Shown here is an 81-nucleotide sequence from Carlito syrichta, a member of the family "Small nucleolar RNA SNORD115". For this family Rfam cites "Identification of brain-specific and imprinted small nucleolar RNA genes exhibiting an unusual genomic organization" (Cavaille et al., Proc Natl Acad Sci U S A, 2000). Rfam classes the family as a C/D-box small nucleolar RNA. A search with the family's covariance model found it, with a score of 53 bits.

RNA sequence: GGGUCAAUGAUGAAAACUUUGCCUUGUCUCUAGAAAGGUGUGGUCUUAAAAGUCUUGUACAAUAGAGUUACGCUGAGGGCU
Number, nucleotide and partner (000 for none) at each position: 001g081002g080003g000004u078005c075006a074007a000008u072009g071010a000011u000012g000013a000014a000015a000016a000017c000018u000019u000020u000021g000022c000023c000024u000025u000026g000027u000028c000029u000030c000031u000032a000033g000034a000035a000036a000037g000038g000039u000040g000041u000042g000043g000044u000045c000046u000047u000048a000049a000050a000051a000052g000053u000054c000055u000056u000057g000058u000059a000060c000061a000062a000063u000064a000065g000066a000067g000068u000069u000070a000071c009072g008073c000074u006075g005076a000077g000078g004079g000080c002081u001